[Rfam]
Rfam assigns this 188-nucleotide RNA sequence from Streptomyces spiralis to the family "c-di-AMP riboswitch aptamer (ydaO/yuaA leader)". Taxonomically the source falls in Streptomyces (Bacteria, Bacillati, Kitasatosporales, Streptomycetaceae).
Nucleotides: 188
Stems, first nucleotide, its partner, number of pairs: 010173002013171002019031001033168006043101005102153003110129006132147004
Number, partner (000 for none) and nucleotide at each position: 001000g002000a003000u004000g005000u006000c007000c008000a009000u010173c011172g012000a013171c014170c015000g016000a017000a018000c019031c020000a021000c022000u023000c024000a025000u026000g027000g028000c029000a030000g031019g032000a033168g034167c035166g036165g037164g038163g039000g040000a041000c042000c043101c044100a045099g046098g047097u048000a049000a050000g051000u052000c053000g054000c055000c056000g057000g058000g059000c060000c061000g062000g063000a064000g065000c066000g067000c068000c069000g070000u071000a072000c073000g074000u075000c076000g077000u078000c079000g080000u081000a082000c083000g084000c085000c086000g087000u088000g089000c090000c091000g092000g093000a094000a095000c096000g097047g098046c099045u100044u101043g102153g103152g104151g105000u106000g107000a108000a109000g110129c111128c112127g113126u114125g115124u116000c117000c118000u119000u120000c121000g122000g123000g124115a125114c126113a127112c128111g129110g130000c131000c132147g133146g134145g135144c136000a137000c138000c139000u140000c141000c142000c143000c144135g145134c146133c147132c148000g149000a150000a151104c152103c153102c154000g155000a156000c157000a158000g159000c160000u161000c162000a163038c164037c165036u166035c167034g168033c169000a170014g171013g172011c173010g174000u175000a176000g177000g178000a179000g180000a181000g182000g183000a184000a185000u186000u187000c188000u
Gene Ontology terms of the family: regulation of gene expression and cyclic-di-AMP binding.